[Rfam]
RNA sequence: AAAAUCGUGCAAAUUCAAUACAUUGCAGAAUUUUCGUAGGCCU
Numbered sequence: 001a002a003a004a005u006c007g008u009g010c011a012a013a014u015u016c017a018a019u020a021c022a023u024u025g026c027a028g029a030a031u032u033u034u035c036g037u038a039g040g041c042c043u
Stems, first nucleotide, its partner, number of pairs: 004031002008027005
RNA: ES036 (CssrF) sRNA
Organism: Shigella flexneri